Notes
Shown here is a 129-nucleotide RNA sequence from Molossus molossus, a member of the family "Small nucleolar RNA SNORA42/SNORA80 family". Lineage of the source: Eukaryota > Gnathostomata > Dipnotetrapodomorpha > Amniota > Molossus. The members of this family belong to the H/ACA class of snoRNAs that guide the sites of modification of uridines to pseudouridines.
RNA sequence: GGAUGAUAUAUGGUGGGCCCUUCUCAGUGAGCCUCUCAGAGUGGACCCAUGCCAGAGUAAACCGCAGCCUUGAACCAUUGCCCAGCCUCCUGAUCUAUGGGUUGUGAGCACUGAAGGGGUUGUACAGUG
Numbered sequence: 001g002g003a004u005g006a007u008a009u010a011u012g013g014u015g016g017g018c019c020c021u022u023c024u025c026a027g028u029g030a031g032c033c034u035c036u037c038a039g040a041g042u043g044g045a046c047c048c049a050u051g052c053c054a055g056a057g058u059a060a061a062c063c064g065c066a067g068c069c070u071u072g073a074a075c076c077a078u079u080g081c082c083c084a085g086c087c088u089c090c091u092g093a094u095c096u097a098u099g100g101g102u103u104g105u106g107a108g109c110a111c112u113g114a115a116g117g118g119g120u121u122g123u124a125c126a127g128u129g
Stems, first nucleotide, its partner, number of pairs: 001047002004044001009040001011038003015034003019029001065122006076113002081108001083104006

A reference for the family is Schattner et al. (2006), "A computational screen for mammalian pseudouridylation guide H/ACA RNAs", RNA. Pairs were carried over by alignment from the consensus structure, which was predicted with RNAalifold. By type it is an H/ACA-box small nucleolar RNA.